[Rfam]
RNA: Bacterial large signal recognition particle RNA
Organism: Lachnospiraceae bacterium KHCPX20
Nucleotides: 261
Stems, first nucleotide, its partner, number of pairs: 001261006008056003011029005018022001033053004061254007070245004076240001080235005088226002092223003096219002100216002102213003110208009119196006125187002128185004134177005144169004152161003
Number, partner (000 for none) and nucleotide at each position: 001261c002260c003259g004258a005257g006256c007000a008056g009055c010054c011029g012028g013027g014026g015025g016000a017000g018022u019000a020000g021000c022018g023000g024000a025015c026014c027013c028012u029011u030000g031000u032000a033053c034052c035051g036050g037000a038000a039000a040000u041000c042000c043000g044000c045000u046000u047000u048000a049000g050036c051035c052034g053033g054010g055009g056008u057000g058000a059000u060000u061254u062253g063252c064251u065250a066249u067248u068000g069000a070245g071244g072243g073242c074000u075000c076240a077000u078000a079000g080235g081234g082233c083232g084231g085000g086000g087000c088226u089225g090000c091000c092223c093222u094221g095000a096219g097218u098000a099000a100216g101215u102213g103212g104211c105000g106000u107000u108000g109000a110208g111207a112206u113205u114204u115203g116202g117201g118200u119196c120195u121194u122193a123192c124191g125187c126186a127000a128185u129184g130183g131182a132000u133000g134177c135176u136175u137174g138173u139000g140000a141000a142000c143000c144169g145168u146167g147166u148000c149000a150000g151000g152161u153160c154159a155000g156000g157000a158000a159154u160153g161152a162000a163000g164000c165000a166147g167146c168145a169144c170000u171000a172000a173138g174137c175136a176135g177134g178000a179000u180000u181000u182131u183130u184129c185128a186126u187125g188000u189000g190000c191124c192123g193122u194121g195120a196119g197000g198000g199000u200118g201117c202116c203115u204114g205113g206112g207111u208110u209000g210000a211104g212103u213102u214000a215101a216100c217000u218097g219096c220000a221094c222093a223092g224000g225089u226088a227000a228000c229000g230000u231084c232083c233082g234081u235080u236000c237000g238000c239000u240076u241000u242073g243072u244071u245070c246000g247000a248067g249066a250065u251064a252063g253062c254061a255000a256006g257005c258004u259003c260002g261001g